[Rfam]
RNA sequence: GUGGGAUAUGGAGACAUGUGCCCGGUAACCAUCGGUGGCAAAAUCGUUGGAUCUUUGUGCGCUAUCGCCGGAGUGCUCACAAUCGCAUUGCCCGUUCCGGUCAUAGUUUCAAAU
Numbered sequence: 001g002u003g004g005g006a007u008a009u010g011g012a013g014a015c016a017u018g019u020g021c022c023c024g025g026u027a028a029c030c031a032u033c034g035g036u037g038g039c040a041a042a043a044u045c046g047u048u049g050g051a052u053c054u055u056u057g058u059g060c061g062c063u064a065u066c067g068c069c070g071g072a073g074u075g076c077u078c079a080c081a082a083u084c085g086c087a088u089u090g091c092c093c094g095u096u097c098c099g100g101u102c103a104u105a106g107u108u109u110c111a112a113a114u
Base pairs, nucleotide, nucleotide: 001114002113005110008107009106011104013102014101015100018097020095021094037077038076039075040074049063050062

Annotation
Rfam assigns this 114-nucleotide RNA sequence from Albula glossodonta to the family "Potassium channel RNA editing signal". The organism belongs to Albula, within Eukaryota. The family's RNA type in Rfam is cis-regulatory element. It scores 95 bits against the family's covariance model. For this family Rfam cites "Control of human potassium channel inactivation by editing of a small mRNA hairpin" (Bhalla et al., Nat Struct Mol Biol, 2004).